Rfam assigns this 71-nucleotide RNA from Pseudothioglobus singularis to the family "SAH (S-adenosyl-L-homocysteine) riboswitch aptamer". NCBI's taxonomy places the organism under Bacteria, Pseudomonadati, Pseudomonadota, Pseudothioglobus (SeqCode), Pseudothioglobus singularis (SeqCode). For this family Rfam cites "Riboswitches that sense S-adenosylhomocysteine and activate genes involved in coenzyme recycling" (Wang et al., Mol Cell, 2008). The family's consensus secondary structure is taken from published work.
RNA sequence: CGUGCCAAGGGGCGUUGCAUUGAAAAUAUUUUUUCAAUCAGGCUUGGUAAUCAAAACGACGCUCAUUUUUU
Numbered sequence: 001c002g003u004g005c006c007a008a009g010g011g012g013c014g015u016u017g018c019a020u021u022g023a024a025a026a027u028a029u030u031u032u033u034u035c036a037a038u039c040a041g042g043c044u045u046g047g048u049a050a051u052c053a054a055a056a057c058g059a060c061g062c063u064c065a066u067u068u069u070u071u
Stems, first nucleotide, its partner, number of pairs: 003049006021037001024034003